[Rfam]
A member of the RNA family "U12 minor spliceosomal RNA" from Desmophyllum pertusum, 148 nucleotides long. It scores 89 bits against the family's covariance model. Its family is annotated with U12 snRNP, pre-mRNA branch point binding and mRNA branch site recognition in the Gene Ontology. Clan: U2 clan. Pairs were carried over by alignment from the consensus structure. For this family Rfam cites "Pre-mRNA splicing: the discovery of a new spliceosome doubles the challenge" (Tarn and Steitz, Trends Biochem Sci, 1997). NCBI's taxonomy places the organism under Eukaryota, Opisthokonta, Cnidaria, Caryophylliidae, Desmophyllum.
Nucleotides: 148
Base pairs, nucleotide, nucleotide: 004023005022006021008019032051033050034049035048036047037046038045054067055066056065057064087148088147090145091144092143093142094141095140096139098133101130103128104127105126107124108123109122110121111120
Number, partner (000 for none) and nucleotide at each position: 001000u002000u003000g004023c005022c006021u007000c008019a009000a010000a011000c012000u013000a014000a015000u016000g017000a018000g019008u020000a021006a022005g023004g024000a025000a026000a027000a028000u029000a030000a031000c032051g033050a034049u035048c036047u037046g038045g039000g040000u041000g042000a043000c044000g045038c046037c047036a048035g049034a050033u051032c052000u053000u054067g055066u056065g057064g058000c059000u060000a061000g062000u063000g064057u065056c066055a067054c068000u069000u070000u071000c072000a073000a074000u075000u076000u077000u078000u079000c080000u081000c082000g083000g084000g085000a086000u087148u088147g089000a090145a091144g092143g093142c094141u095140g096139c097000c098133c099000u100000c101130g102000u103128g104127u105126g106000a107124c108123c109122c110121g111120c112000u113000u114000a115000c116000u117000u118000u119000u120111g121110c122109g123108g124107g125000a126105u127104g128103c129000c130101c131000g132000u133098g134000u135000u136000g137000u138000a139096g140095u141094g142093g143092c144091c145090u146000c147088c148087g